[Rfam]
Shown here is a 113-nucleotide sequence from Peptacetobacter hominis, a member of the family "TPP riboswitch aptamer (THI element)".
Vitamin B(1) in its active form thiamin pyrophosphate (TPP) is an essential coenzyme that is synthesised by coupling of pyrimidine and thiazole moieties in bacteria. The previously detected thiamin-regulatory element, thi box was extended, resulting in a new, highly conserved RNA secondary structure, the THI element, which is widely distributed in eubacteria and also occurs in some archaea. Analysis of operon structures identified a large number of new candidate thiamin-regulated genes, mostly transporters, in various prokaryotic organisms.
The base pairs follow the family's consensus structure, which is taken from published work.

RNA sequence: UCGAAAAGCUAGGGGCGCUGAAAUUGGUCAGCUGAGAGAAAGAGCCUUAAACUUACAAACCCUAAAUACCUGAUCAAGAUAAUGCUUGCGAAGGGAAGCUGCUGAAAAUAUAU
Numbered sequence: 001u002c003g004a005a006a007a008g009c010u011a012g013g014g015g016c017g018c019u020g021a022a023a024u025u026g027g028u029c030a031g032c033u034g035a036g037a038g039a040a041a042g043a044g045c046c047u048u049a050a051a052c053u054u055a056c057a058a059a060c061c062c063u064a065a066a067u068a069c070c071u072g073a074u075c076a077a078g079a080u081a082a083u084g085c086u087u088g089c090g091a092a093g094g095g096a097a098g099c100u101g102c103u104g105a106a107a108a109u110a111u112a113u
Stems, first nucleotide, its partner, number of pairs: 007100004011063004017032005041054002069094003075088004